[Rfam]
RNA sequence: CUGAACCUUCGGGGCAGGGUGGAAUUCCCUACCGGCGGUGACGGCGCCUGCAUGGCGCCGAAGCCCGCGACUCCCGCUGCCGCUUCGCGGCGGCGGGACUGACUUGGUGCGAGUCCAAGGCCGACGGUAUAGUCCGGAUGAGAGAAGGUCAAA
Numbered sequence: 001c002u003g004a005a006c007c008u009u010c011g012g013g014g015c016a017g018g019g020u021g022g023a024a025u026u027c028c029c030u031a032c033c034g035g036c037g038g039u040g041a042c043g044g045c046g047c048c049u050g051c052a053u054g055g056c057g058c059c060g061a062a063g064c065c066c067g068c069g070a071c072u073c074c075c076g077c078u079g080c081c082g083c084u085u086c087g088c089g090g091c092g093g094c095g096g097g098a099c100u101g102a103c104u105u106g107g108u109g110c111g112a113g114u115c116c117a118a119g120g121c122c123g124a125c126g127g128u129a130u131a132g133u134c135c136g137g138a139u140g141a142g143a144g145a146a147g148g149u150c151a152a153a
Base pairs, nucleotide, nucleotide: 005149006148007147008146009145010144017029018028019027031133032132033123034122035068036067037066038065063121064120072098073097074096075095076094077093078092079091080090081089103119104118105117106116107115125136126135127134

Rfam assigns this 153-nucleotide RNA sequence from Paenibacillus albicereus to the family "FMN riboswitch aptamer (RFN element)". Rfam's curators write: The RFN element is a highly conserved domain that is found frequently in the 5'-untranslated regions of prokaryotic mRNAs that encode for flavin mononucleotide (FMN) biosynthesis and transport proteins. This element is a metabolite-dependent riboswitch that directly binds FMN in the absence of proteins. In Bacillus subtilis, the riboswitch most likely controls gene expression by causing premature transcription termination within the 5' untranslated region of the ribDEAHT operon and precluding access to the ribosome-binding site of ypaA mRNA.The FMN riboswitch structure, reported in present an FMN-bound six-stem junction, adopts a butterfly-like scaffold, stapled together by opposingly directed but nearly identically folded peripheral domains. Taxonomically the source falls in Paenibacillus (Bacteria, Bacilli, Caryophanales, Paenibacillaceae).